The family of this 341-nucleotide RNA sequence from Xanthomonas euvesicatoria is "Proteobacterial sRNA sX6".
RNA sequence: UCACCGAAGCCAAAGAGGACGCCAUGAAGUUCAAGCACAUCCUGAUGCUCACCCUCGGUGCGGCCGCAGUCGCAGCGCUUCCCGCCAUGGCCCAGGCCGCUCCGCAGCAGACCGGACAGGGCGCCGCGGCUCAAAAGGCCGAUGACGCGAAGGCCAAGACCGAAGCCGAACGCAAAGCCGAACGCCGCGCUGCCGCCGCUGCGCAGAAGCCCAAGGCCGACAGCGCCCCGCGCGAGGAAGAGGAAGAAGAAAAGCCUGCACGCUGAUCGCGCGGCCUAGCGGCCAGGUGCUACCGACGCCCCGGCAUUGCCGGGGCGUUCGCUUUUGGGGUAGCUGUGUAA
Numbered sequence: 001u002c003a004c005c006g007a008a009g010c011c012a013a014a015g016a017g018g019a020c021g022c023c024a025u026g027a028a029g030u031u032c033a034a035g036c037a038c039a040u041c042c043u044g045a046u047g048c049u050c051a052c053c054c055u056c057g058g059u060g061c062g063g064c065c066g067c068a069g070u071c072g073c074a075g076c077g078c079u080u081c082c083c084g085c086c087a088u089g090g091c092c093c094a095g096g097c098c099g100c101u102c103c104g105c106a107g108c109a110g111a112c113c114g115g116a117c118a119g120g121g122c123g124c125c126g127c128g129g130c131u132c133a134a135a136a137g138g139c140c141g142a143u144g145a146c147g148c149g150a151a152g153g154c155c156a157a158g159a160c161c162g163a164a165g166c167c168g169a170a171c172g173c174a175a176a177g178c179c180g181a182a183c184g185c186c187g188c189g190c191u192g193c194c195g196c197c198g199c200u201g202c203g204c205a206g207a208a209g210c211c212c213a214a215g216g217c218c219g220a221c222a223g224c225g226c227c228c229c230g231c232g233c234g235a236g237g238a239a240g241a242g243g244a245a246g247a248a249g250a251a252a253a254g255c256c257u258g259c260a261c262g263c264u265g266a267u268c269g270c271g272c273g274g275c276c277u278a279g280c281g282g283c284c285a286g287g288u289g290c291u292a293c294c295g296a297c298g299c300c301c302c303g304g305c306a307u308u309g310c311c312g313g314g315g316c317g318u319u320c321g322c323u324u325u326u327g328g329g330g331u332a333g334c335u336g337u338g339u340a341a
Stems, first nucleotide, its partner, number of pairs: 022243002029183004035178002043174002046172002049169002057079005063073002084139003097120002101116003121132001123130002152167003186234005195210002216226002260339004274280002293321001295319011
Record summary: It is one of the family's seed sequences.